A member of the RNA family "permuted transfer-messenger RNA" from Teichococcus cervicalis, 207 nucleotides long. Lineage of the source: Bacteria > Alphaproteobacteria > Acetobacterales > Roseomonas > Teichococcus cervicalis.

RNA sequence: GGCGAUAAACGGUACGUGGAAUAAGCGUUGCGGACCCGGGGGCAGUACCCGGCGUCUCCACCAUGCCCCUCGGGGCGCUGUGGGGACGACACAGGCUCGACGCGCGCGGUAAAGACGUAUCUUUUGCCCGGCAUUGUACCGCCGUUAUCGGGCUAAAUCACAAGUGCCAACGAUAACAGCCGCGAGGCUGUGGCGCUCGCUGCCUAA
Numbered sequence: 001g002g003c004g005a006u007a008a009a010c011g012g013u014a015c016g017u018g019g020a021a022u023a024a025g026c027g028u029u030g031c032g033g034a035c036c037c038g039g040g041g042g043c044a045g046u047a048c049c050c051g052g053c054g055u056c057u058c059c060a061c062c063a064u065g066c067c068c069c070u071c072g073g074g075g076c077g078c079u080g081u082g083g084g085g086a087c088g089a090c091a092c093a094g095g096c097u098c099g100a101c102g103c104g105c106g107c108g109g110u111a112a113a114g115a116c117g118u119a120u121c122u123u124u125u126g127c128c129c130g131g132c133a134u135u136g137u138a139c140c141g142c143c144g145u146u147a148u149c150g151g152g153c154u155a156a157a158u159c160a161c162a163a164g165u166g167c168c169a170a171c172g173a174u175a176a177c178a179g180c181c182g183c184g185a186g187g188c189u190g191u192g193g194c195g196c197u198c199g200c201u202g203c204c205u206a207a
Base pairs, nucleotide, nucleotide: 001128002127003126004125005124014118015117016116017115026106027105028104030103031102032101036052037051038050039049040048053088054087055086056085057084058083059082060081061080129144130143131142132141